[Rfam]
RNA sequence: CUUCCCAUUGAUUGCUGCUCUAGUCUUUUAGUGAUAUAAGCAGUUAUAUACAUGAGCGAGAACAGUAUUAGGGUCUUGCAAAGGGAGAUGGGAGUAACCAUUUCAUCUCUUCUGUGAAGUCCAGACAUUG
Numbered sequence: 001c002u003u004c005c006c007a008u009u010g011a012u013u014g015c016u017g018c019u020c021u022a023g024u025c026u027u028u029u030a031g032u033g034a035u036a037u038a039a040g041c042a043g044u045u046a047u048a049u050a051c052a053u054g055a056g057c058g059a060g061a062a063c064a065g066u067a068u069u070a071g072g073g074u075c076u077u078g079c080a081a082a083g084g085g086a087g088a089u090g091g092g093a094g095u096a097a098c099c100a101u102u103u104c105a106u107c108u109c110u111u112c113u114g115u116g117a118a119g120u121c122c123a124g125a126c127a128u129u130g
Stems, first nucleotide, its partner, number of pairs: 004056001006054003014044006021036002024034002068124002071121002074118001077116004085109009